MIR2907 microRNA precursor family: a 65-nucleotide RNA from Oryza meridionalis. A search with the family's covariance model found it, with a score of 61 bits. Its family is annotated with RISC complex and miRNA-mediated post-transcriptional gene silencing in the Gene Ontology. The source organism's lineage runs through Eukaryota, Tracheophyta, Liliopsida, Poales and Oryza. The base pairs follow the family's consensus structure, which was predicted with RNAalifold. For this family Rfam cites "Identification of novel stress-regulated microRNAs from Oryza sativa L" (Jian et al., Genomics, 2010).
RNA sequence: UAGCACCCCUUCCUCCGCCUACUCGGCCGCGUCGUGGCAGCCGAGUGAGGGCCUCGGGGCGGCGC
Numbered sequence: 001u002a003g004c005a006c007c008c009c010u011u012c013c014u015c016c017g018c019c020u021a022c023u024c025g026g027c028c029g030c031g032u033c034g035u036g037g038c039a040g041c042c043g044a045g046u047g048a049g050g051g052c053c054u055c056g057g058g059g060c061g062g063c064g065c
Base pairs, nucleotide, nucleotide: 003063004062007059008058009057010056017052018051019050020049022045023044024043025042026041027040030037